[Rfam]
RNA sequence: CAAGACCUUCGGGGCAGGGUGAGGCGCGAAGCGCCAAUUCCCGACCGGCGGUAAAGCCCGCGAGCGGCCAAUGGCCGCAGGAUCCGGUGAGGCGCCAACGGCGCCAAUUCCGGGGCCGACGGUAUAGUCCGGAUGGGAGAAGGUCGUU
Numbered sequence: 001c002a003a004g005a006c007c008u009u010c011g012g013g014g015c016a017g018g019g020u021g022a023g024g025c026g027c028g029a030a031g032c033g034c035c036a037a038u039u040c041c042c043g044a045c046c047g048g049c050g051g052u053a054a055a056g057c058c059c060g061c062g063a064g065c066g067g068c069c070a071a072u073g074g075c076c077g078c079a080g081g082a083u084c085c086g087g088u089g090a091g092g093c094g095c096c097a098a099c100g101g102c103g104c105c106a107a108u109u110c111c112g113g114g115g116c117c118g119a120c121g122g123u124a125u126a127g128u129c130c131g132g133a134u135g136g137g138a139g140a141a142g143g144u145c146g147u148u
Base pairs, nucleotide, nucleotide: 004145005144006143007142008141009140010139017042018041019040044128045127046118047117048061049060050059051058056116057115064078065077066076083114084113085112086111087110120131121130122129
FMN riboswitch aptamer (RFN element): a 148-nucleotide RNA from bacterium HR28. Its family is annotated with FMN binding in the Gene Ontology.